[Rfam]
The record is a 160-nucleotide RNA from Aminivibrio pyruvatiphilus, which matches "glmS glucosamine-6-phosphate activated ribozyme aptamer" in Rfam. The family's RNA type in Rfam is riboswitch. On this family, see Winkler et al., Nature 2004: "Control of gene expression by a natural metabolite-responsive ribozyme". The organism belongs to Aminivibrio, within Bacteria. The match comes from Rfam's covariance-model search (98 bits).
RNA sequence: GGCCAGUGUAAAGCGCCUGCGCCGGGAGACCCCGGCUGACGAGGACGGAGGAGUAUCGAAGAUUCGGCGGAUGCCUCCGGGGCCGCGAAAACCGGCCCGCAAAGCCUUCAUACAAAAGCGGAAAGCAAUUUCCGCCACAAAAAGGAAGGCCGUUUUCUUU
Numbered sequence: 001g002g003c004c005a006g007u008g009u010a011a012a013g014c015g016c017c018u019g020c021g022c023c024g025g026g027a028g029a030c031c032c033c034g035g036c037u038g039a040c041g042a043g044g045a046c047g048g049a050g051g052a053g054u055a056u057c058g059a060a061g062a063u064u065c066g067g068c069g070g071a072u073g074c075c076u077c078c079g080g081g082g083c084c085g086c087g088a089a090a091a092c093c094g095g096c097c098c099g100c101a102a103a104g105c106c107u108u109c110a111u112a113c114a115a116a117a118g119c120g121g122a123a124a125g126c127a128a129u130u131u132c133c134g135c136c137a138c139a140a141a142a143a144g145g146a147a148g149g150c151c152g153u154u155u156u157c158u159u160u
Stems, first nucleotide, its partner, number of pairs: 021036006047078005056067004080098005104150006118135007